Shown here is a 95-nucleotide RNA sequence from Paenirhodobacter hankyongi, a member of the family "TPP riboswitch aptamer (THI element)". Its family is annotated with thiamine pyrophosphate binding in the Gene Ontology. The match comes from Rfam's covariance-model search (69 bits).
RNA sequence: CCAUAGCGACAGGGGCGCUCGGGCAACCGGGCUGAGAAGAACCCUUAGAACCUGAACCGGAUAAUGCCGGCGGAGGGAGGCGCGCGGAAGACCCG
Numbered sequence: 001c002c003a004u005a006g007c008g009a010c011a012g013g014g015g016c017g018c019u020c021g022g023g024c025a026a027c028c029g030g031g032c033u034g035a036g037a038a039g040a041a042c043c044c045u046u047a048g049a050a051c052c053u054g055a056a057c058c059g060g061a062u063a064a065u066g067c068c069g070g071c072g073g074a075g076g077g078a079g080g081c082g083c084g085c086g087g088a089a090g091a092c093c094c095g
Stems, first nucleotide, its partner, number of pairs: 006083003010079001011045004016039001017032005051076003057070004